[Rfam]
RNA sequence: ACGACCCGCAAGGCCGACGCAUAACGCGCCGCCGGCGCAAGCCCGGCCACCCUGCAAGUGGCGGGCGCUCAUGGGUGCCCA
Numbered sequence: 001a002c003g004a005c006c007c008g009c010a011a012g013g014c015c016g017a018c019g020c021a022u023a024a025c026g027c028g029c030c031g032c033c034g035g036c037g038c039a040a041g042c043c044c045g046g047c048c049a050c051c052c053u054g055c056a057a058g059u060g061g062c063g064g065g066c067g068c069u070c071a072u073g074g075g076u077g078c079c080c081a
Base pairs, nucleotide, nucleotide: 004076005075006074007073013066014065015064018028019027020026031047032046033045034044048063050061051060053058
The family of this 81-nucleotide sequence is "Twister_sister_ribozyme". Rfam's curators put it in the seed alignment. The base pairs follow the family's consensus structure, which is taken from published work. A reference for the family is Weinberg et al. (2015), "New classes of self-cleaving ribozymes revealed by comparative genomics analysis", Nat Chem Biol.